[Rfam]
RNA: Small nucleolar RNA SNORA26
RNA sequence: AUACCCUCUUAAGAUUGAUGCAGUGUUUUAAGAGGCUAACACAGAAAGGUAAAGGAAAUCUUCAUAAAACCCAGAGAAGAGAUUGUAAAACUCCUCCCUGGAUCCUGUCUGGAGGCACACCU
Number, nucleotide and partner (000 for none) at each position: 001a000002u051003a050004c049005c048006c000007u046008c000009u044010u043011a000012a000013g000014a000015u039016u038017g037018a000019u035020g000021c032022a000023g000024u000025g000026u000027u000028u000029u000030a000031a000032g021033a000034g000035g019036c000037u017038a016039a015040c000041a000042c000043a010044g009045a000046a007047a000048g005049g004050u003051a002052a000053a000054g000055g000056a000057a000058a000059u000060c114061u113062u112063c111064a110065u000066a000067a000068a000069a000070c000071c101072c100073a099074g098075a000076g096077a095078a000079g093080a092081g091082a000083u090084u089085g000086u000087a000088a000089a084090a083091c081092u080093c079094c000095u077096c076097c000098c074099u073100g072101g071102a000103u000104c000105c000106u000107g000108u000109c000110u064111g063112g062113a061114g060115g000116c000117a000118c000119a000120c000121c000122u000